[Rfam]
RNA: Selenocysteine transfer RNA
RNA sequence: GGAAGCGGACGGCUCCUGGUGGGGCCCCUGGACUUCAAAUCCAGUGACCGGCACGGAAAGGUGUCGGUGGUGGGUUCGAUUCCCAUGCGCUUCC
Number, nucleotide and partner (000 for none) at each position: 001g094002g093003a092004a091005g090006c089007g088008g000009a086010c000011g026012g025013c024014u023015c022016c021017u000018g000019g000020u000021g016022g015023g014024g013025c012026c011027c000028c044029u043030g042031g041032a040033c000034u000035u000036c000037a000038a000039a000040u032041c031042c030043a029044g028045u000046g000047a068048c067049c066050g065051g064052c063053a062054c000055g000056g000057a000058a000059a000060g000061g000062u053063g052064u051065c050066g049067g048068u047069g000070g000071u085072g084073g083074g082075u000076u000077c000078g000079a000080u000081u000082c074083c073084c072085a071086u009087g000088c007089g006090c005091u004092u003093c002094c001